[Rfam]
RNA sequence: CUCGUCUCGCUGGGGUGCCCAUCCGCAAGGAUGGGCUGAGAAACACCCAUAGAACCUGAACCAGGUCAUGCUGGCGGAGGAAGCACGAGAUGGCAAGGG
Numbered sequence: 001c002u003c004g005u006c007u008c009g010c011u012g013g014g015g016u017g018c019c020c021a022u023c024c025g026c027a028a029g030g031a032u033g034g035g036c037u038g039a040g041a042a043a044c045a046c047c048c049a050u051a052g053a054a055c056c057u058g059a060a061c062c063a064g065g066u067c068a069u070g071c072u073g074g075c076g077g078a079g080g081a082a083g084c085a086c087g088a089g090a091u092g093g094c095a096a097g098g099g
Base pairs, nucleotide, nucleotide: 006087009084010083011049012048013047014046016043017036018035019034020033021032022031023030055080056079057078061074062073063072064071